[Rfam]
RNA sequence: GAAAAUAUGCAGGGGAACUACGUGUUGAGAAGGCGUUGCCUGACCCUUUGAACCUGUCGGUUAAUACCGUGGUAGGGAGCAUAAAAUGGUAUGAU
Numbered sequence: 001g002a003a004a005a006u007a008u009g010c011a012g013g014g015g016a017a018c019u020a021c022g023u024g025u026u027g028a029g030a031a032g033g034c035g036u037u038g039c040c041u042g043a044c045c046c047u048u049u050g051a052a053c054c055u056g057u058c059g060g061u062u063a064a065u066a067c068c069g070u071g072g073u074a075g076g077g078a079g080c081a082u083a084a085a086a087u088g089g090u091a092u093g094a095u
Base pairs, nucleotide, nucleotide: 006083007082008081009080010079011047012046013045014044016041017025018024032040033039034038053076054075055074056073058069059068060067
RNA: TPP riboswitch aptamer (THI element)
Organism: Clostridium sp. CAG:411